[Rfam]
RNA sequence: AACCAAUGAUGAACAGAUUCUGCCAAAUGAAUUGGAUGAUUAUACUCCAUACCGUUCCUUUUAUUAUUCUGAGGUU
Numbered sequence: 001a002a003c004c005a006a007u008g009a010u011g012a013a014c015a016g017a018u019u020c021u022g023c024c025a026a027a028u029g030a031a032u033u034g035g036a037u038g039a040u041u042a043u044a045c046u047c048c049a050u051a052c053c054g055u056u057c058c059u060u061u062u063a064u065u066a067u068u069c070u071g072a073g074g075u076u
Stems, first nucleotide, its partner, number of pairs: 001076004

The family of this 76-nucleotide sequence from Lepisosteus oculatus is "Small nucleolar RNA SNORD47". It is annotated as a C/D-box small nucleolar RNA. On this family, see Galardi et al., Mol Cell Biol 2002: "Purified box C/D snoRNPs are able to reproduce site-specific 2'-O-methylation of target RNA in vitro". Lineage of the source: Eukaryota > Deuterostomia > Gnathostomata > Holostei > Lepisosteus. The family has 20 seed sequences and 755 matches in Rfam 15.1. Its family is annotated with RNA processing and nucleolus in the Gene Ontology.